[Rfam]
RNA: Plastid-clpP 5UTR RNA
RNA sequence: AGUUCAGUUUGUAGGAAUAAAGAGAAGUGGAUCUAUUCUAUCCCCAGUAGGUACCAAUAUGCAGUGGGG
Numbered sequence: 001a002g003u004u005c006a007g008u009u010u011g012u013a014g015g016a017a018u019a020a021a022g023a024g025a026a027g028u029g030g031a032u033c034u035a036u037u038c039u040a041u042c043c044c045c046a047g048u049a050g051g052u053a054c055c056a057a058u059a060u061g062c063a064g065u066g067g068g069g
Base pairs, nucleotide, nucleotide: 003022004021007018008017009016010015043068044067045066051060052059053058